[Rfam]
RNA sequence: GACAAGGGGUUUAUCGCGACGACCCCGUGAGGCUUCGGCCCAAGGUUCGCGUCCAUGGUCCUCAAUUGAAGGGAUGGACGCCAUG
Numbered sequence: 001g002a003c004a005a006g007g008g009g010u011u012u013a014u015c016g017c018g019a020c021g022a023c024c025c026c027g028u029g030a031g032g033c034u035u036c037g038g039c040c041c042a043a044g045g046u047u048c049g050c051g052u053c054c055a056u057g058g059u060c061c062u063c064a065a066u067u068g069a070a071g072g073g074a075u076g077g078a079c080g081c082c083a084u085g
Stems, first nucleotide, its partner, number of pairs: 006026005049081008
Overview:
Rfam assigns this 85-nucleotide RNA from Allobosea sp. Root381 to the family "chrB-a RNA". It scores 60 bits against the family's covariance model. Rfam classes the family as a cis-regulatory element. NCBI's taxonomy places the organism under Bacteria, Pseudomonadota, Hyphomicrobiales, Alloboseaceae, Allobosea.